This 126-nucleotide sequence from Corynebacterium choanae belongs to the Rfam family "FMN riboswitch aptamer (RFN element)". It scores 86 bits against the family's covariance model.
RNA sequence: GUCGUGCACCGGGGUCAGUGAAAGUCUGAACCGGCGGUUAUAGUCCGCGACCCGAGACACAUGUCGAGGUGGAGCCUGGUGAAAUUCCAGCACCGACGGUAAAAGUCCGGAUGGUAGGAGCACGAC
Numbered sequence: 001g002u003c004g005u006g007c008a009c010c011g012g013g014g015u016c017a018g019u020g021a022a023a024g025u026c027u028g029a030a031c032c033g034g035c036g037g038u039u040a041u042a043g044u045c046c047g048c049g050a051c052c053c054g055a056g057a058c059a060c061a062u063g064u065c066g067a068g069g070u071g072g073a074g075c076c077u078g079g080u081g082a083a084a085u086u087c088c089a090g091c092a093c094c095g096a097c098g099g100u101a102a103a104a105g106u107c108c109g110g111a112u113g114g115u116a117g118g119a120g121c122a123c124g125a126c
Stems, first nucleotide, its partner, number of pairs: 003124005009118002016028003030106002032095002034048004043093002052069002074091001076090004097109003

Notes:
The organism belongs to Corynebacterium, within Bacteria.